[Rfam]
RNA sequence: GGGGCUGAUUAGGAUUCGACGGGAUUCAAGAAGCCUAAGGUGCAUGUCGAGGUGCGGCUGGCCUCGUAAAAAAGCCGUAUUUAAAGUAAUCGCAAACGACGAUAACUACGCUCUAGCGGCAUAAUAGCCCGCUAGCACUCCUCCAUGAUAUUCUUGUGGAUCUGGUUCUGGAGUGUCACCCUACACAAGAUCGCUACGGAAACCCUGGCCGGGGUUGAAGGGCUAAAACUAAGCGGCCUCGCCUUUACUUAUCGUGUUCGUCCGAGAUUUAAAGGUUAACCAAAAGACGAUACUAAACAUGUAGGACCGAAGGUCGACGCUUUCCGGACGGGGGUUCAAAUCCCCCCAGCUCCACCA
Numbered sequence: 001g002g003g004g005c006u007g008a009u010u011a012g013g014a015u016u017c018g019a020c021g022g023g024a025u026u027c028a029a030g031a032a033g034c035c036u037a038a039g040g041u042g043c044a045u046g047u048c049g050a051g052g053u054g055c056g057g058c059u060g061g062c063c064u065c066g067u068a069a070a071a072a073a074g075c076c077g078u079a080u081u082u083a084a085a086g087u088a089a090u091c092g093c094a095a096a097c098g099a100c101g102a103u104a105a106c107u108a109c110g111c112u113c114u115a116g117c118g119g120c121a122u123a124a125u126a127g128c129c130c131g132c133u134a135g136c137a138c139u140c141c142u143c144c145a146u147g148a149u150a151u152u153c154u155u156g157u158g159g160a161u162c163u164g165g166u167u168c169u170g171g172a173g174u175g176u177c178a179c180c181c182u183a184c185a186c187a188a189g190a191u192c193g194c195u196a197c198g199g200a201a202a203c204c205c206u207g208g209c210c211g212g213g214g215u216u217g218a219a220g221g222g223c224u225a226a227a228a229c230u231a232a233g234c235g236g237c238c239u240c241g242c243c244u245u246u247a248c249u250u251a252u253c254g255u256g257u258u259c260g261u262c263c264g265a266g267a268u269u270u271a272a273a274g275g276u277u278a279a280c281c282a283a284a285a286g287a288c289g290a291u292a293c294u295a296a297a298c299a300u301g302u303a304g305g306a307c308c309g310a311a312g313g314u315c316g317a318c319g320c321u322u323u324c325c326g327g328a329c330g331g332g333g334g335u336u337c338a339a340a341u342c343c344c345c346c347c348a349g350c351u352c353c354a355c356c357a
Stems, first nucleotide, its partner, number of pairs: 001353007020326005027319001033314004039308003043301005048066005053079007113135007136175006143165003147162003152190007194222002207239002210236001212234001241276007250267001252265003256293002260288003330346005
Background: The record is a 357-nucleotide RNA sequence from Pseudoalteromonas sp. NC201, which matches "transfer-messenger RNA" in Rfam. Clan: tRNA clan. NCBI's taxonomy places the organism under Bacteria, Pseudomonadota, Gammaproteobacteria, Pseudoalteromonadaceae, Pseudoalteromonas. It scores 230 bits against the family's covariance model. By type it is a non-coding RNA gene. Rfam describes the family as follows. Bacterial tmRNA, also known as 10Sa RNA or SsrA, is named for its dual tRNA and mRNA-like properties. Its role is to liberate the mRNA from a stalled ribosome. To accomplish this part of the tmRNA is used as a reading frame that ends in a translation stop signal.